RNA sequence: GGUCAUGAGUGCCAGCGACAAGCCCCGGCUUGCUGGUCGGCAACCCUCCAACCGCGGUGGGGUGCCCCGGGUGAUGAACCAGGUUGAGUAGCCGCUAGCGAGCGGUUGCCGGCAAGCGCGGGUC
Numbered sequence: 001g002g003u004c005a006u007g008a009g010u011g012c013c014a015g016c017g018a019c020a021a022g023c024c025c026c027g028g029c030u031u032g033c034u035g036g037u038c039g040g041c042a043a044c045c046c047u048c049c050a051a052c053c054g055c056g057g058u059g060g061g062g063u064g065c066c067c068c069g070g071g072u073g074a075u076g077a078a079c080c081a082g083g084u085u086g087a088g089u090a091g092c093c094g095c096u097a098g099c100g101a102g103c104g105g106u107u108g109c110c111g112g113c114a115a116g117c118g119c120g121g122g123u124c
Stems, first nucleotide, its partner, number of pairs: 001080002003077002009038001011037006021030002039066003044062003048057002083113004088109009
RNA: SAM (S-adenosyl methionine) riboswitch aptamer